Background
A member of the RNA family "Bacillaceae-1 RNA" from Peribacillus faecalis, 67 nucleotides long.
RNA sequence: UAAUAUGGAACAGCGACCAAGAACGCUACAUCCUCUAGCAACGUCGCUGUGACUCUCAUCGUGAGAG
Number, nucleotide and partner (000 for none) at each position: 001u000002a000003a000004u000005a000006u000007g000008g000009a000010a000011c049012a048013g047014c046015g045016a044017c043018c000019a000020a000021g000022a000023a000024c000025g039026c038027u037028a036029c000030a000031u000032c000033c000034u000035c000036u028037a027038g026039c025040a000041a000042c000043g017044u016045c015046g014047c013048u012049g011050u000051g000052a000053c067054u066055c065056u064057c063058a000059u000060c000061g000062u000063g057064a056065g055066a054067g053
NCBI's taxonomy places the organism under Bacteria, Bacillati, Caryophanales, Bacillaceae, Peribacillus.
The base pairs follow the family's consensus structure, which is taken from published work.
By type it is a small RNA.